[Rfam]
RNA sequence: UAAUCUGUUUAAGGCAAUUCAUUAUCUAGUUACAAUAGAUUCAUUUCUAACUAUUCAAAAUCAUUAUUAUCUCAAGCACGCCAAUAUCACACUUACUUUUAAGUCUAAACUUUAUUAAAGUUUAAUAUCAGUUA
Numbered sequence: 001u002a003a004u005c006u007g008u009u010u011a012a013g014g015c016a017a018u019u020c021a022u023u024a025u026c027u028a029g030u031u032a033c034a035a036u037a038g039a040u041u042c043a044u045u046u047c048u049a050a051c052u053a054u055u056c057a058a059a060a061u062c063a064u065u066a067u068u069a070u071c072u073c074a075a076g077c078a079c080g081c082c083a084a085u086a087u088c089a090c091a092c093u094u095a096c097u098u099u100u101a102a103g104u105c106u107a108a109a110c111u112u113u114a115u116u117a118a119a120g121u122u123u124a125a126u127a128u129c130a131g132u133u134a
Stems, first nucleotide, its partner, number of pairs: 005131003008127001012123001014121002018118002023114002028111004